[Rfam]
RNA sequence: UUCUUAUCUAGAGAAGCGGAGGGACUGGCCCUAUGAAGCUUCGGCAACAGACUUUUUUAAAAGUACUGUGCUAAUUCCUGCAAGCAUGUUUAAUGCUUGGAAGAUAAGAG
Numbered sequence: 001u002u003c004u005u006a007u008c009u010a011g012a013g014a015a016g017c018g019g020a021g022g023g024a025c026u027g028g029c030c031c032u033a034u035g036a037a038g039c040u041u042c043g044g045c046a047a048c049a050g051a052c053u054u055u056u057u058u059a060a061a062a063g064u065a066c067u068g069u070g071c072u073a074a075u076u077c078c079u080g081c082a083a084g085c086a087u088g089u090u091u092a093a094u095g096c097u098u099g100g101a102a103g104a105u106a107a108g109a110g
Base pairs, nucleotide, nucleotide: 001110002109003108004107005106006105007104008103013042014041015040016039017038021031022030023029025080027078028077043072044071045070046069048068049067051064052063053062054061076102081099082098083097084096085095086094
The family of this 110-nucleotide sequence from Schinkia azotoformans is "SAM riboswitch aptamer (S box leader)".
The family's consensus secondary structure is taken from published work.